[Rfam]
RNA sequence: GCCUUAUCAAGAGCGGUGGAGGGAAUAGGCCCUAUGAAGCCCGGCAACCUGUUAAAAACAAAGGUGCUAAAUCCUACAGAAUCUUGUUUCUGGGAGAUGAGGU
Numbered sequence: 001g002c003c004u005u006a007u008c009a010a011g012a013g014c015g016g017u018g019g020a021g022g023g024a025a026u027a028g029g030c031c032c033u034a035u036g037a038a039g040c041c042c043g044g045c046a047a048c049c050u051g052u053u054a055a056a057a058a059c060a061a062a063g064g065u066g067c068u069a070a071a072u073c074c075u076a077c078a079g080a081a082u083c084u085u086g087u088u089u090c091u092g093g094g095a096g097a098u099g100a101g102g103u
Stems, first nucleotide, its partner, number of pairs: 001103008013042001015041003021032003026076004043068004048064002050060004072095001077092005
A member of the RNA family "SAM riboswitch aptamer (S box leader)" from Paratissierella segnis, 103 nucleotides long. The family's consensus secondary structure is taken from published work.